The family of this 104-nucleotide RNA from Terrihalobacillus insolitus is "SAM riboswitch aptamer (S box leader)".

RNA sequence: UUCUUAUCCAGAGAGGUGGAGGGACUGGCCCAUUGAAACCUCGGCAACAGACAUUUUUUGUACUGUGCCAAUUCCAGCAAGCAUAAUGCUUGAAAAGAUAAGAA
Numbered sequence: 001u002u003c004u005u006a007u008c009c010a011g012a013g014a015g016g017u018g019g020a021g022g023g024a025c026u027g028g029c030c031c032a033u034u035g036a037a038a039c040c041u042c043g044g045c046a047a048c049a050g051a052c053a054u055u056u057u058u059u060g061u062a063c064u065g066u067g068c069c070a071a072u073u074c075c076a077g078c079a080a081g082c083a084u085a086a087u088g089c090u091u092g093a094a095a096a097g098a099u100a101a102g103a104a
Base pairs, nucleotide, nucleotide: 001104002103003102004101005100006099007098008097013042014041015040016039017038021031022030023029025077026076027075028074043069044068045067046066048065049064051061052060053059073096078092079091080090081089082088083087

Lineage of the source: Bacteria > Bacillati > Bacilli > Caryophanales > Terrihalobacillus.